[Rfam]
RNA sequence: AGCUGUGUGAGGUUAACUCGACGUCCAUGGUUGGACUAGAGGAAGCCUCUACAGCCCC
Numbered sequence: 001a002g003c004u005g006u007g008u009g010a011g012g013u014u015a016a017c018u019c020g021a022c023g024u025c026c027a028u029g030g031u032u033g034g035a036c037u038a039g040a041g042g043a044a045g046c047c048u049c050u051a052c053a054g055c056c057c058c
Base pairs, nucleotide, nucleotide: 002055003054004053005052006051007050009049011048012047017041018040019039023036024035025034026033027032
Record summary: A member of the RNA family "Pestivirus 3' UTR SLI" from Orthopestivirus tauri, 58 nucleotides long. The family's RNA type in Rfam is cis-regulatory element. The base pairs follow the family's consensus structure. The organism belongs to Orthopestivirus tauri, within Viruses.